[Rfam]
Rfam assigns this 102-nucleotide sequence from Clostridium paridis to the family "Purine riboswitch aptamer". Its family is annotated with purine nucleobase biosynthetic process in the Gene Ontology. The match comes from Rfam's covariance-model search (72 bits). Pairs were carried over by alignment from the consensus structure, which is taken from published work.
RNA sequence: UUGAAAAGAAAAGUCCUAGCCCAUAUAGAUCUGAUGAUAAGGUUCAGAUGUUUCUACGAGGAUUCCGUAAAAGUUCUCUCUAUGGGUAAAUCAAUGGUAUCG
Dot-bracket structure: ..................(((((((...((((((.........))))))........(((((((.......)))))))..)))))))...............
Numbered sequence: 001u002u003g004a005a006a007a008g009a010a011a012a013g014u015c016c017u018a019g020c021c022c023a024u025a026u027a028g029a030u031c032u033g034a035u036g037a038u039a040a041g042g043u044u045c046a047g048a049u050g051u052u053u054c055u056a057c058g059a060g061g062a063u064u065c066c067g068u069a070a071a072a073g074u075u076c077u078c079u080c081u082a083u084g085g086g087u088a089a090a091u092c093a094a095u096g097g098u099a100u101c102g
Stems, first nucleotide, its partner, number of pairs: 019087007029049006058078007